A member of the RNA family "U4 spliceosomal RNA" from Acinonyx jubatus, 129 nucleotides long. By type it is a spliceosomal small nuclear RNA. On this family, see Plaschka et al., Nature 2017: "Structure of a pre-catalytic spliceosome". A search with the family's covariance model found it, with a score of 49 bits. Rfam describes the family as follows. U4 small nuclear RNA (U4 snRNA) is a component of the major U2-dependent spliceosome.
RNA sequence: AGCUUUGCGCAGUGGCAGUAUCAUAGCCAAUGAAGUUUAUCCGAGGCGCGAUUAUUGCGAACAGAAUAUGGUGGCCACAUGCAGCUGGUUCAUUUUGGAGAAGUCUCUGCUUAAAGAUACACUGAUGUA
Numbered sequence: 001a002g003c004u005u006u007g008c009g010c011a012g013u014g015g016c017a018g019u020a021u022c023a024u025a026g027c028c029a030a031u032g033a034a035g036u037u038u039a040u041c042c043g044a045g046g047c048g049c050g051a052u053u054a055u056u057g058c059g060a061a062c063a064g065a066a067u068a069u070g071g072u073g074g075c076c077a078c079a080u081g082c083a084g085c086u087g088g089u090u091c092a093u094u095u096u097g098g099a100g101a102a103g104u105c106u107c108u109g110c111u112u113a114a115a116g117a118u119a120c121a122c123u124g125a126u127g128u129a
Stems, first nucleotide, its partner, number of pairs: 020052003024048001026047003035041001083111003087106002090101002093098001118129004